[Rfam]
The record is a 122-nucleotide RNA from Sinorhizobium saheli, which matches "Alphaproteobacterial ar14" in Rfam. The family's RNA type in Rfam is small RNA. Its family is annotated with biological process involved in symbiotic interaction in the Gene Ontology. The source organism's lineage runs through Bacteria, Pseudomonadati, Pseudomonadota, Alphaproteobacteria and Sinorhizobium. The literature on the family includes a 2012 paper in RNA Biol by del Val et al., "A survey of sRNA families in alpha-proteobacteria".
RNA sequence: CCUUGUCGACGCGCUGUACCUCCUCCCACGGCGCCCGACAUGAGAUCGGUUCCACUCCUCCUCCCAGAACCGAUCGAGUUCAAAGACCCCGACGCCACCUCCUCCCGGCUCGGGGUCUUUUC
Numbered sequence: 001c002c003u004u005g006u007c008g009a010c011g012c013g014c015u016g017u018a019c020c021u022c023c024u025c026c027c028a029c030g031g032c033g034c035c036c037g038a039c040a041u042g043a044g045a046u047c048g049g050u051u052c053c054a055c056u057c058c059u060c061c062u063c064c065c066a067g068a069a070c071c072g073a074u075c076g077a078g079u080u081c082a083a084a085g086a087c088c089c090c091g092a093c094g095c096c097a098c099c100u101c102c103u104c105c106c107g108g109c110u111c112g113g114g115g116u117c118u119u120u121u122c
Stems, first nucleotide, its partner, number of pairs: 007037002011034006044075008053067001085117008094109003